Rfam assigns this 82-nucleotide RNA sequence to the family "tRNA".
It is one of the family's seed sequences.
By type it is a transfer RNA.
RNA sequence: GUGGAAGUGGCGGAGUGGUUAUCGGGCAUGACUAGAAAUCAUGUGGGCUUUGCCCGCGCAGGUUCGAAUCCUGCCGUUCACG
Dot-bracket structure: (((((.(...(((........)))..(((((.......)))))..............(((((.......)))))).))))).